[Rfam]
RNA: FMN riboswitch aptamer (RFN element)
RNA sequence: UGCUUUCUUCAGGGCGGGGUGCAAGUCCCCACCGGCGGUGACAGCCCGCGAACCCCGAGAGGGGCCGAACCGGUGAAAUCCCGGUGCCGACGGUAAGAGUCCGGAUGGGAGAAGGAAGGU
Numbered sequence: 001u002g003c004u005u006u007c008u009u010c011a012g013g014g015c016g017g018g019g020u021g022c023a024a025g026u027c028c029c030c031a032c033c034g035g036c037g038g039u040g041a042c043a044g045c046c047c048g049c050g051a052a053c054c055c056c057g058a059g060a061g062g063g064g065c066c067g068a069a070c071c072g073g074u075g076a077a078a079u080c081c082c083g084g085u086g087c088c089g090a091c092g093g094u095a096a097g098a099g100u101c102c103g104g105a106u107g108g109g110a111g112a113a114g115g116a117a118g119g120u
Stems, first nucleotide, its partner, number of pairs: 003118008017029003031100002033089002035049004044087002053064002069085005091103003